RNA sequence: AGGAGUGUAGCUCAAUUGGUAGAGCACCGGUCUCCAAAACCGGGGGUUGGGGGUUCGAGUCCCUCCACUCCUG
Numbered sequence: 001a002g003g004a005g006u007g008u009a010g011c012u013c014a015a016u017u018g019g020u021a022g023a024g025c026a027c028c029g030g031u032c033u034c035c036a037a038a039a040c041c042g043g044g045g046g047u048u049g050g051g052g053g054u055u056c057g058a059g060u061c062c063c064u065c066c067a068c069u070c071c072u073g
Stems, first nucleotide, its partner, number of pairs: 001072007010025004027043005049065005
Shown here is a 73-nucleotide RNA sequence, a member of the family "tRNA". It is annotated as a transfer RNA.